[Rfam]
RNA sequence: AGAUUUGCGCAGUGGCACUACUGUAGACUGUGAGGCUCAUCCGAGGCAUGGUUAUUGUUGAUUGAAAACUUUUCCCAAGACUCCGCAAGACGACUUGAAAUACAGUCGGCUUUGCAAUUUUUGACGGUCCAUAUGUGGA
Numbered sequence: 001a002g003a004u005u006u007g008c009g010c011a012g013u014g015g016c017a018c019u020a021c022u023g024u025a026g027a028c029u030g031u032g033a034g035g036c037u038c039a040u041c042c043g044a045g046g047c048a049u050g051g052u053u054a055u056u057g058u059u060g061a062u063u064g065a066a067a068a069c070u071u072u073u074c075c076c077a078a079g080a081c082u083c084c085g086c087a088a089g090a091c092g093a094c095u096u097g098a099a100a101u102a103c104a105g106u107c108g109g110c111u112u113u114g115c116a117a118u119u120u121u122u123g124a125c126g127g128u129c130c131a132u133a134u135g136u137g138g139a
Base pairs, nucleotide, nucleotide: 020052021051022050023049024048026047028045034042035041085115086114087113088111089110091108092107093106094105095104128139129138130137131136
RNA: U4 spliceosomal RNA
Organism: Stylophora pistillata